[Rfam]
RNA sequence: CGAAAACCACAUCGGUAGUCUCGUAUAUCCUCGGGAAUAUGGCCCGAGAGUCUCUACCCGAACCCCGUAAAGGUUUGGACUACGAGCUGGUAGGUGUUCGAC
Numbered sequence: 001c002g003a004a005a006a007c008c009a010c011a012u013c014g015g016u017a018g019u020c021u022c023g024u025a026u027a028u029c030c031u032c033g034g035g036a037a038u039a040u041g042g043c044c045c046g047a048g049a050g051u052c053u054c055u056a057c058c059c060g061a062a063c064c065c066c067g068u069a070a071a072g073g074u075u076u077g078g079a080c081u082a083c084g085a086g087c088u089g090g091u092a093g094g095u096g097u098u099c100g101a102c
Stems, first nucleotide, its partner, number of pairs: 018088001020086006030048006058078007